[Rfam]
Source information: The family of this 156-nucleotide RNA sequence from a Mycobacteriaceae bacterium is "c-di-AMP riboswitch aptamer (ydaO/yuaA leader)". Lineage of the source: Bacteria > Actinomycetota > Actinomycetes > Mycobacteriales > Mycobacteriaceae.
RNA sequence: GUGAAGCCACCGCUCAAUCGGCCUUCGGCCGAGCCGGGGACCCAAUUCCCCUGGGGUGAAUCCCCGAUUCGCGCCCACAGCGCCCGGAUCGAGGUAGGGCAACUCUUCCGCGCCCGAACCCGUCAGCUAACUCGGUCGGCGGGCCAGGAAGAAAUG
Numbered sequence: 001g002u003g004a005a006g007c008c009a010c011c012g013c014u015c016a017a018u019c020g021g022c023c024u025u026c027g028g029c030c031g032a033g034c035c036g037g038g039g040a041c042c043c044a045a046u047u048c049c050c051c052u053g054g055g056g057u058g059a060a061u062c063c064c065c066g067a068u069u070c071g072c073g074c075c076c077a078c079a080g081c082g083c084c085c086g087g088a089u090c091g092a093g094g095u096a097g098g099g100c101a102a103c104u105c106u107u108c109c110g111c112g113c114c115c116g117a118a119c120c121c122g123u124c125a126g127c128u129a130a131c132u133c134g135g136u137c138g139g140c141g142g143g144c145c146a147g148g149a150a151g152a153a154a155u156g
Base pairs, nucleotide, nucleotide: 011141012140013139014138018032019031020030033136034135035134036133037132038131043053044052054121055120056119062094063093065091066090067089068088069087070086071085097115098114099113100112